[Rfam]
Rfam assigns this 104-nucleotide RNA from Nocardiopsis sp. NRRL B-16309 to the family "TPP riboswitch aptamer (THI element)". The literature on the family includes a 2002 paper in J Biol Chem by Rodionov et al., "Comparative genomics of thiamin biosynthesis in procaryotes. New genes and regulatory mechanisms". NCBI's taxonomy places the organism under Bacteria, Bacillati, Actinomycetota, Nocardiopsidaceae, Nocardiopsis.
RNA sequence: CCCACUGACGCGGGGUGCCGGGAGGAGCAGUCCUCCCGGCUGAGAGCACACCCGUCGAACCUGCCCUAGGUAGUUCUAGCGAAGGAACGUCAUGAGCGCGUACA
Number, nucleotide and partner (000 for none) at each position: 001c000002c000003c000004a000005c000006u092007g091008a090009c089010g088011c054012g053013g052014g051015g000016u048017g040018c039019c038020g037021g036022g035023a034024g033025g032026a000027g000028c000029a000030g000031u000032c025033c024034u023035c022036c021037c020038g019039g018040c017041u000042g000043a000044g000045a000046g000047c000048a016049c000050a000051c014052c013053c012054g011055u000056c000057g000058a000059a000060c085061c084062u083063g000064c000065c000066c079067u078068a077069g076070g000071u000072a000073g000074u000075u000076c069077u068078a067079g066080c000081g000082a000083a062084g061085g060086a000087a000088c010089g009090u008091c007092a006093u000094g000095a000096g000097c000098g000099c000100g000101u000102a000103c000104a000